[Rfam]
RNA sequence: AAAAAGGGCUUCUGUCGUGAGUGGCAUAUGUAGGGCAGCUUGAUUGCUCUAUGUGCAGAAUCGACAUCAAGAGAUUUCGGAAGCAUAAUUUUUUGGUACCUGGGCAGCUACUGAUUGCUGGUCCUGGCGCCCUU
Numbered sequence: 001a002a003a004a005a006g007g008g009c010u011u012c013u014g015u016c017g018u019g020a021g022u023g024g025c026a027u028a029u030g031u032a033g034g035g036c037a038g039c040u041u042g043a044u045u046g047c048u049c050u051a052u053g054u055g056c057a058g059a060a061u062c063g064a065c066a067u068c069a070a071g072a073g074a075u076u077u078c079g080g081a082a083g084c085a086u087a088a089u090u091u092u093u094u095g096g097u098a099c100c101u102g103g104g105c106a107g108c109u110a111c112u113g114a115u116u117g118c119u120g121g122u123c124c125u126g127g128c129g130c131c132c133u134u
Base pairs, nucleotide, nucleotide: 008084009083010082011081012080013026014025015024016023017022027055028054029053030052031051032050033049034048035047036046037045038044056079058077059076060075061074062073102132103131104130105129107128108127109126110125113123114122115121116120
A member of the RNA family "U11 spliceosomal RNA" from Phyllostomus discolor, 134 nucleotides long. A search with the family's covariance model found it, with a score of 113 bits. For this family Rfam cites "Evolution of spliceosomal snRNA genes in metazoan animals" (Marz et al., J Mol Evol, 2008). Pairs were carried over by alignment from the consensus structure, which is taken from published work. Taxonomically the source falls in Phyllostomus (Eukaryota, Metazoa, Amniota, Chiroptera).